[Rfam]
RNA sequence: CACGUCAGUGCGCUUUGCUGACGUUGACACAAAUAGAGUCCACGUAAGCGCUAUUUGUGUCCACAUCAGCAAAGCGCACUGACGUGG
Numbered sequence: 001c002a003c004g005u006c007a008g009u010g011c012g013c014u015u016u017g018c019u020g021a022c023g024u025u026g027a028c029a030c031a032a033a034u035a036g037a038g039u040c041c042a043c044g045u046a047a048g049c050g051c052u053a054u055u056u057g058u059g060u061c062c063a064c065a066u067c068a069g070c071a072a073a074g075c076g077c078a079c080u081g082a083c084g085u086g087g
Stems, first nucleotide, its partner, number of pairs: 001086021023064002026061011038049001
This 87-nucleotide RNA from Gossypium aridum belongs to the Rfam family "MIR7486 microRNA precursor family". Its family is annotated with miRNA-mediated post-transcriptional gene silencing and RISC complex in the Gene Ontology. A search with the family's covariance model found it, with a score of 86 bits.